[Rfam]
RNA: mir-5928 microRNA precursor family
RNA sequence: GGCCCAAAUCUGAAAUAGAGUAGAUUGGUAGUAUCAUCUGACCGUACUAAUCUACUCUACUUCAAGUUUGCGCCC
Numbered sequence: 001g002g003c004c005c006a007a008a009u010c011u012g013a014a015a016u017a018g019a020g021u022a023g024a025u026u027g028g029u030a031g032u033a034u035c036a037u038c039u040g041a042c043c044g045u046a047c048u049a050a051u052c053u054a055c056u057c058u059a060c061u062u063c064a065a066g067u068u069u070g071c072g073c074c075c
Stems, first nucleotide, its partner, number of pairs: 001074003005070005011064004016059008025050006034041002